[Rfam]
RNA: Hepatitis C virus (HCV) cis-acting replication element (CRE)
Nucleotides: 177
Base pairs, nucleotide, nucleotide: 006051007050008049009048010047011046012045013044016041017040018039019038020037021036022035023034024033025032026031055100056099057098058097059096060095063084064083065082066081067080112142113141114140115139116138117137118136119135120134121133122132123131124130150174151173152172153171154170155169156168157167159165
Number, partner (000 for none) and nucleotide at each position: 001000c002000c003000a004000u005000u006051g007050c008049c009048a010047g011046c012045c013044g014000c015000u016041g017040g018039c019038c020037a021036g022035u023034u024033g025032g026031a027000u028000u029000u030000g031026u032025c033024c034023a035022g036021c037020u038019g039018g040017u041016u042000u043000a044013c045012g046011g047010u048009u049008g050007g051006u052000g053000u054000c055100g056099g057098c058097g059096g060095g061000a062000a063084c064083g065082a066081c067080a068000u069000u070000u071000a072000u073000c074000a075000c076000a077000g078000c079000g080067u081066g082065u083064c084063g085000c086000g087000u088000g089000c090000c091000c092000g093000a094000a095060c096059c097058c098057g099056c100055c101000a102000u103000u104000u105000g106000c107000u108000g109000c110000u111000u112142u113141g114140c115139c116138u117137a118136c119135u120134c121133c122132u123131a124130c125000u126000a127000a128000c129000a130124g131123u132122a133121g134120g135119g136118g137117u138116a139115g140114g141113c142112a143000u144000c145000u146000u147000u148000c149000u150174c151173u152172u153171g154170c155169c156168a157167g158000c159165u160000c161000g162000a163000u164000g165159a166000g167157c168156u169155g170154g171153u172152a173151a174150g175000a176000u177000a